Shown here is a 122-nucleotide RNA from Luteovirus pashordei, a member of the family "Luteovirus cap-independent translation element (BTE)". This family represents the Luteovirus cap-independent translation element (BTE) as found in barley yellow dwarf virus (BYDV), bean leafroll virus and soybean dwarf virus. This family mediates translation of genomic (gRNA) and subgenomic RNA1 (sgRNA1). Rfam classes the family as a cis-regulatory element. Lineage of the source: Viruses > Riboviria > Kitrinoviricota > Regressovirinae > Luteovirus pashordei. Rfam's curators put it in the seed alignment.
RNA sequence: ACACCACUAACACAAGCCGAAUCCUGGGAAACAGGCAGAACUUAGGUUCGUAAGCUCGGGUAAUUGGAAGGUGGGCUGUCAACCCACCACCAUCUUACCGCCGCAUUGCCUUGUGUUUGGCC
Numbered sequence: 001a002c003a004c005c006a007c008u009a010a011c012a013c014a015a016g017c018c019g020a021a022u023c024c025u026g027g028g029a030a031a032c033a034g035g036c037a038g039a040a041c042u043u044a045g046g047u048u049c050g051u052a053a054g055c056u057c058g059g060g061u062a063a064u065u066g067g068a069a070g071g072u073g074g075g076c077u078g079u080c081a082a083c084c085c086a087c088c089a090c091c092a093u094c095u096u097a098c099c100g101c102c103g104c105a106u107u108g109c110c111u112u113g114u115g116u117u118u119g120g121c122c
Base pairs, nucleotide, nucleotide: 004120005119006118009117010116011115012114013113014112015111018108019107020106023035024034025033026032038049039048040047041046054104055103070099071098072097073096074095075094